[Rfam]
RNA sequence: GAAUGGAAUGAUGAUAAUUUGUUUCCCUAUUGGUUUGAUUGCCUGGAUGAUGGCAAAUUUGUAUUAGCUCUAUCUGAUCAUUC
Numbered sequence: 001g002a003a004u005g006g007a008a009u010g011a012u013g014a015u016a017a018u019u020u021g022u023u024u025c026c027c028u029a030u031u032g033g034u035u036u037g038a039u040u041g042c043c044u045g046g047a048u049g050a051u052g053g054c055a056a057a058u059u060u061g062u063a064u065u066a067g068c069u070c071u072a073u074c075u076g077a078u079c080a081u082u083c
Base pairs, nucleotide, nucleotide: 002082003081004080005079040055041054042053043052
This 83-nucleotide RNA sequence from Senna tora belongs to the Rfam family "Small nucleolar RNA Z102/R77". The family's RNA type in Rfam is C/D-box small nucleolar RNA. Taxonomically the source falls in Senna (Eukaryota, Streptophyta, Embryophyta, Magnoliopsida). A search with the family's covariance model found it, with a score of 85 bits. Clan: SNORD44 clan.